[Rfam]
RNA sequence: AAUGUUACCAAGCCUUGUCUUCUGUUUCUUUUUUAGCACCUUCUAUUAGGGGGCGUUUGUCAUUUCAGAAGAAAAAAAAGACAAAGUUUAAAAGCCUCCUCUCACAGGGAGGCUUUUUUAUU
Numbered sequence: 001a002a003u004g005u006u007a008c009c010a011a012g013c014c015u016u017g018u019c020u021u022c023u024g025u026u027u028c029u030u031u032u033u034u035a036g037c038a039c040c041u042u043c044u045a046u047u048a049g050g051g052g053g054c055g056u057u058u059g060u061c062a063u064u065u066c067a068g069a070a071g072a073a074a075a076a077a078a079a080g081a082c083a084a085a086g087u088u089u090a091a092a093a094g095c096c097u098c099c100u101c102u103c104a105c106a107g108g109g110a111g112g113c114u115u116u117u118u119u120a121u122u
Stems, first nucleotide, its partner, number of pairs: 012087002015084001017082005023076001025074006032067001035064001039050003052061003091116010
Shown here is a 122-nucleotide RNA from Moellerella wisconsensis, a member of the family "Phenylalanine leader peptide". Its family is annotated with cellular amino acid metabolic process in the Gene Ontology. The family's consensus secondary structure was predicted with CMfinder. For this family Rfam cites "Two groups of phenylalanine biosynthetic operon leader peptides genes: a high level of apparently incidental frameshifting in decoding Escherichia coli pheL" (Gurvich et al., Nucleic Acids Res, 2010). NCBI's taxonomy places the organism under Bacteria, Pseudomonadati, Morganellaceae, Moellerella, Moellerella wisconsensis. It is annotated as a cis-regulatory leader.